Rfam assigns this 209-nucleotide sequence from Streptomyces sp. 150FB to the family "Streptomyces RNA 1601". Rfam describes the family as follows. Identified by deep sequencing of transcriptome at the end of exponential growth phase. Appears longer on northern blot than sequencing transcript. Streptomyces specific. A search with the family's covariance model found it, with a score of 178 bits. On this family, see Vockenhuber et al., RNA Biol 2011: "Deep sequencing-based identification of small non-coding RNAs in Streptomyces coelicolor". It is annotated as a small RNA.
[Rfam]
RNA sequence: AACGACCGGCUGGACACAUGUGUGUCCGGCCCACAAGUGGAGGCUCCGAUCUCCCACCUGGCUGCCCCAUCCGGGCGGCGGGUCACCGGUCAGGUGGCGCCCAUCGUUCCGUACGGACGAUGGAGCCGCCCGAAGCGCGCCCCGCGGUAGACGCGGCGGUGCUCCGGUAACAAGGAGCUGCCGCCUGUGUCCCGUCCGGGGCAUUUUUG
Numbered sequence: 001a002a003c004g005a006c007c008g009g010c011u012g013g014a015c016a017c018a019u020g021u022g023u024g025u026c027c028g029g030c031c032c033a034c035a036a037g038u039g040g041a042g043g044c045u046c047c048g049a050u051c052u053c054c055c056a057c058c059u060g061g062c063u064g065c066c067c068c069a070u071c072c073g074g075g076c077g078g079c080g081g082g083u084c085a086c087c088g089g090u091c092a093g094g095u096g097g098c099g100c101c102c103a104u105c106g107u108u109c110c111g112u113a114c115g116g117a118c119g120a121u122g123g124a125g126c127c128g129c130c131c132g133a134a135g136c137g138c139g140c141c142c143c144g145c146g147g148u149a150g151a152c153g154c155g156g157c158g159g160u161g162c163u164c165c166g167g168u169a170a171c172a173a174g175g176a177g178c179u180g181c182c183g184c185c186u187g188u189g190u191c192c193c194g195u196c197c198g199g200g201g202c203a204u205u206u207u208u209g
Stems, first nucleotide, its partner, number of pairs: 004091006012027002028084005034060002037057004041052002061079007093130005101123008139202006145194003152189003155185005161178005